Shown here is a 110-nucleotide RNA sequence from Corynebacterium glaucum, a member of the family "mraW RNA".
[Rfam]
RNA sequence: UGACGGAGAGCGUGUACGGACUCUGUCCGGGGUGUGAAGCUUCUCUGGUGUACUUCCCCGACAUCAGAUCAGCCGCCCCGGGCAGGGCUCUACUCGCUCCCCCAACGAGG
Dot-bracket structure: .........(((.(((.((.((((((((((((((....(((..((((((((.........))))))))..))))))))))))))))).))))).))).............